[Rfam]
Nucleotides: 084
Base pairs, nucleotide, nucleotide: 016076017075018074020072021071025067026066030062031061032060033059036057037056038055039054040053041052042051043050
Number, partner (000 for none) and nucleotide at each position: 001000g002000u003000u004000u005000u006000g007000u008000g009000u010000g011000c012000g013000u014000u015000a016076g017075g018074g019000a020072u021071u022000g023000u024000a025067g026066u027000g028000g029000a030062a031061a032060u033059c034000c035000u036057u037056u038055u039054u040053u041052a042051g043050c044000c045000u046000u047000a048000a049000a050043g051042c052041u053040a054039a055038a056037a057036a058000a059033g060032a061031u062030u063000g064000c065000a066026a067025c068000g069000u070000a071021a072020a073000g074018c075017c076016c077000g078000a079000c080000c081000c082000c083000u084000u